[Rfam]
RNA sequence: CUGCACGAUGCUAACCCCGGGCUUGUCGGACGGACCUCGGUCCGCUGUGAUGAAGGAAAGCCCCAAUGCUGUGCUAGAUCCACGCUGCCGUUCAGUGUUGCAGGCCGCGACACGCGUGGAUGAGCAGCCUGUGUCAGAGUAACGGAUACAUUC
Numbered sequence: 001c002u003g004c005a006c007g008a009u010g011c012u013a014a015c016c017c018c019g020g021g022c023u024u025g026u027c028g029g030a031c032g033g034a035c036c037u038c039g040g041u042c043c044g045c046u047g048u049g050a051u052g053a054a055g056g057a058a059a060g061c062c063c064c065a066a067u068g069c070u071g072u073g074c075u076a077g078a079u080c081c082a083c084g085c086u087g088c089c090g091u092u093c094a095g096u097g098u099u100g101c102a103g104g105c106c107g108c109g110a111c112a113c114g115c116g117u118g119g120a121u122g123a124g125c126a127g128c129c130u131g132u133g134u135c136a137g138a139g140u141a142a143c144g145g146a147u148a149c150a151u152u153c
Stems, first nucleotide, its partner, number of pairs: 003074005010069002019063005024057001026053003088145005096136002099133006
RNA: small nucleolar RNA snoR134
Organism: Triticum turgidum